[Rfam]
RNA: MIR2619 microRNA precursor family
RNA sequence: AAACAGCCCCAUAUGUAUUGGAUCUUUGUCAGUUUUGGCCCUCAAUGUCACUUUUGACUUAGUUUUCGCUGACGUGGCACCCACAUCCCUUAAGUGAGGUGCCAUGUGUCGACCAUUGUGAGUGCCACGUCAGCGAAGACUAAGUGAAAAGUGGUCUUGGGAGCCAAAACUGUCAAAGAUCCAAUAAAGAGGAGGUUGUUU
Numbered sequence: 001a002a003a004c005a006g007c008c009c010c011a012u013a014u015g016u017a018u019u020g021g022a023u024c025u026u027u028g029u030c031a032g033u034u035u036u037g038g039c040c041c042u043c044a045a046u047g048u049c050a051c052u053u054u055u056g057a058c059u060u061a062g063u064u065u066u067c068g069c070u071g072a073c074g075u076g077g078c079a080c081c082c083a084c085a086u087c088c089c090u091u092a093a094g095u096g097a098g099g100u101g102c103c104a105u106g107u108g109u110c111g112a113c114c115a116u117u118g119u120g121a122g123u124g125c126c127a128c129g130u131c132a133g134c135g136a137a138g139a140c141u142a143a144g145u146g147a148a149a150a151g152u153g154g155u156c157u158u159g160g161g162a163g164c165c166a167a168a169a170c171u172g173u174c175a176a177a178g179a180u181c182c183a184a185u186a187a188a189g190a191g192g193a194g195g196u197u198g199u200u201u
Stems, first nucleotide, its partner, number of pairs: 001201002004198005012190001014188001016186013030172010041161005072130002075127006082120004